[Rfam]
RNA sequence: GGCCUUGGGUAAUCGAGCGCGGCAAUUGUCGUGUUAGGAAGGUCCAUGCUCGCACGGGCUGCGAUGCCCGUAGUGUUUGUGCUCGCUGAAACGAUAAGGCGGGGCACCGGUGAUGCCGGUGACGGCGGAAAAAGCGGCUAAGGCUUCGGCUAUGCCCCAGUAUUCCUGAAAAGUGCCACAGUGACGAAGCAGGUUUGGAAACAAGCCUGAUGGAACGCGGUAAACCCCUCAAGCGGGAAACCCAAACUUACGGUAGGGGAGCUUUGGAUAACAAAUUGAAGUGAUUCCAGGGGAGCGUAUUUUUACGCUGAGAUAGAUGAUUACCACUGCACGUUUACGCCUGACAUUCGUGCUUUGACAAAACAUGGCCUACAGAG
Numbered sequence: 001g002g003c004c005u006u007g008g009g010u011a012a013u014c015g016a017g018c019g020c021g022g023c024a025a026u027u028g029u030c031g032u033g034u035u036a037g038g039a040a041g042g043u044c045c046a047u048g049c050u051c052g053c054a055c056g057g058g059c060u061g062c063g064a065u066g067c068c069c070g071u072a073g074u075g076u077u078u079g080u081g082c083u084c085g086c087u088g089a090a091a092c093g094a095u096a097a098g099g100c101g102g103g104g105c106a107c108c109g110g111u112g113a114u115g116c117c118g119g120u121g122a123c124g125g126c127g128g129a130a131a132a133a134g135c136g137g138c139u140a141a142g143g144c145u146u147c148g149g150c151u152a153u154g155c156c157c158c159a160g161u162a163u164u165c166c167u168g169a170a171a172a173g174u175g176c177c178a179c180a181g182u183g184a185c186g187a188a189g190c191a192g193g194u195u196u197g198g199a200a201a202c203a204a205g206c207c208u209g210a211u212g213g214a215a216c217g218c219g220g221u222a223a224a225c226c227c228c229u230c231a232a233g234c235g236g237g238a239a240a241c242c243c244a245a246a247c248u249u250a251c252g253g254u255a256g257g258g259g260a261g262c263u264u265u266g267g268a269u270a271a272c273a274a275a276u277u278g279a280a281g282u283g284a285u286u287c288c289a290g291g292g293g294a295g296c297g298u299a300u301u302u303u304u305a306c307g308c309u310g311a312g313a314u315a316g317a318u319g320a321u322u323a324c325c326a327c328u329g330c331a332c333g334u335u336u337a338c339g340c341c342u343g344a345c346a347u348u349c350g351u352g353c354u355u356u357g358a359c360a361a362a363a364c365a366u367g368g369c370c371u372a373c374a375g376a377g
Stems, first nucleotide, its partner, number of pairs: 004377003007373001008325007016035006040371003044368005049237005054071006077232003081228001082103006104123001105121006124227002127166004136156003142151003173225002175221003190209008241258003262292007294309005329353005
A member of the RNA family "Bacterial RNase P class B" from Limosilactobacillus secaliphilus, 377 nucleotides long. The source organism's lineage runs through Bacteria, Bacillota, Bacilli, Lactobacillaceae and Limosilactobacillus. It scores 312 bits against the family's covariance model. It is annotated as a ribozyme. The family is grouped with related families in Rfam's "RNaseP clan". Ribonuclease P (RNase P) is a ubiquitous endoribonuclease, found in archaea, bacteria and eukarya as well as chloroplasts and mitochondria. Pairs were carried over by alignment from the consensus structure, which is taken from published work.